Rfam assigns this 102-nucleotide RNA sequence from Corchorus olitorius to the family "Small nucleolar RNA snoR99". The match comes from Rfam's covariance-model search (63 bits). The source organism's lineage runs through Eukaryota, Viridiplantae, Malvaceae, Grewioideae and Corchorus. For this family Rfam cites "Experimental RNomics: identification of 140 candidates for small non-messenger RNAs in the plant Arabidopsis thaliana" (Marker et al., Curr Biol, 2002). Rfam links the family to the GO terms RNA processing and nucleolus.
RNA sequence: GUGCUUUAGGGAUGAAGGAGUCCUUAAUAGCUGUUAUCCAUCCAAGUUACUUUGUCAGUGGCCUGUUUGUUGGCUGAUUGAUCAUUAUAGGAUGGAUAAAUG
Numbered sequence: 001g002u003g004c005u006u007u008a009g010g011g012a013u014g015a016a017g018g019a020g021u022c023c024u025u026a027a028u029a030g031c032u033g034u035u036a037u038c039c040a041u042c043c044a045a046g047u048u049a050c051u052u053u054g055u056c057a058g059u060g061g062c063c064u065g066u067u068u069g070u071u072g073g074c075u076g077a078u079u080g081a082u083c084a085u086u087a088u089a090g091g092a093u094g095g096a097u098a099a100a101u102g
Stems, first nucleotide, its partner, number of pairs: 037096006054082006061075001